The family of this 31-nucleotide RNA sequence from Hibiscus trionum is "Iron response element II". The base pairs follow the family's consensus structure, which is taken from published work. About the family: IRE, TFRC, SLC40A1, SDHB, SLC11A2, CDC42BPA, ACO2, ALAS2_H.SAPIENS, CDC14A, EPAS1, ALAS2, qoxD, Hao1, NDUFS1, transferrin, Aconitate. A reference for the family is Koeller et al. (1989), "A cytosolic protein binds to structural elements within the iron regulatory region of the transferrin receptor mRNA", Proc Natl Acad Sci U S A. Rfam 15.1 lists 5,197 matches to the family in 722 species. Its family is annotated with response to iron ion in the Gene Ontology. It is annotated as a cis-regulatory element. Lineage of the source: Eukaryota > Embryophyta > Euphyllophyta > rosids > Hibiscus.

RNA sequence: UCAUAAUCUGCAGCAGUGCCUGCAACUUUGA
Number, nucleotide and partner (000 for none) at each position: 001u031002c030003a029004u000005a027006a000007u025008c000009u024010g023011c022012a021013g020014c018015a000016g000017u000018g014019c000020c013021u012022g011023c010024a009025a007026c000027u005028u000029u003030g002031a001